[Rfam]
RNA sequence: CUAAUCUCGAAGAGCGUUUUGGGGGAUACGCACAGUGACCAUUCAAGCUGAUUGUGACACUGUGUAGGGUAGGUACUGAUUGGUUCUUCAAUCAGUAGAUGGGAAGAAAAUGCCAUAGGACUGGUAUUGUUAUAGGAAGCCCAACA
Number, nucleotide and partner (000 for none) at each position: 001c000002u000003a000004a000005u000006c023007u022008c021009g020010a019011a018012g000013a000014g000015c000016g000017u000018u011019u010020u009021g008022g007023g006024g000025g000026a000027u000028a000029c000030g065031c064032a063033c062034a061035g060036u059037g058038a000039c000040c054041a053042u000043u000044c000045a000046a000047g000048c000049u000050g000051a000052u000053u041054g040055u000056g000057a000058c037059a036060c035061u034062g033063u032064g031065u030066a000067g000068g000069g000070u000071a000072g000073g000074u097075a096076c095077u094078g093079a092080u091081u090082g089083g088084u000085u000086c000087u000088u083089c082090a081091a080092u079093c078094a077095g076096u075097a074098g000099a000100u000101g000102g000103g000104a000105a000106g000107a000108a000109a000110a000111u126112g125113c124114c123115a122116u000117a000118g000119g000120a000121c000122u115123g114124g113125u112126a111127u000128u000129g000130u000131u000132a000133u000134a000135g000136g000137a000138a000139g000140c000141c000142c000143a000144a000145c000146a000
RNA: DABA-DC-AT RNA
Organism: Vibrio nigripulchritudo